[Rfam]
RNA sequence: AACUGCAAUAUCCAUUUGAGUAUCCUGAAAACGGGCUUUUCAGUAUGGUAUUGCUUUAUAAAAUUGUAGGAGUGCAUAGUGGCCCGUAUAGCAGGCAUUAACAUUCCUGAU
Numbered sequence: 001a002a003c004u005g006c007a008a009u010a011u012c013c014a015u016u017u018g019a020g021u022a023u024c025c026u027g028a029a030a031a032c033g034g035g036c037u038u039u040u041c042a043g044u045a046u047g048g049u050a051u052u053g054c055u056u057u058a059u060a061a062a063a064u065u066g067u068a069g070g071a072g073u074g075c076a077u078a079g080u081g082g083c084c085c086g087u088a089u090a091g092c093a094g095g096c097a098u099u100a101a102c103a104u105u106c107c108u109g110a111u
Stems, first nucleotide, its partner, number of pairs: 005054006012048002024095003032086004040110003
RNA: Alpha operon ribosome binding site